[Rfam]
RNA sequence: GGUCUUGAGAUCCGGCGACAAGCCACGGCUUGCCGGACGGCAACCCCUCGCGAGAGCAGGGUGCCCCGUGUGACGACCUGGUUGUGUCAGGAAGGCAUGACAAGCGCGACAG
Number, nucleotide and partner (000 for none) at each position: 001g078002g077003u076004c075005u000006u000007g000008a000009g038010a000011u037012c036013c035014g034015g033016c032017g000018a000019c000020a000021a030022g029023c000024c000025a000026c000027g000028g000029c022030u021031u000032g016033c015034c014035g013036g012037a011038c009039g065040g064041c063042a000043a000044c061045c060046c059047c000048u000049c056050g000051c000052g000053a000054g000055a000056g049057c000058a000059g046060g045061g044062u000063g041064c040065c039066c000067c000068g000069u000070g000071u000072g000073a000074c000075g004076a003077c002078c001079u000080g000081g101082u100083u099084g098085u097086g096087u095088c094089a000090g000091g000092a000093a000094g088095g087096c086097a085098u084099g083100a082101c081102a000103a000104g000105c000106g000107c000108g000109a000110c000111a000112g000
RNA: SAM (S-adenosyl methionine) riboswitch aptamer
Organism: Cutibacterium granulosum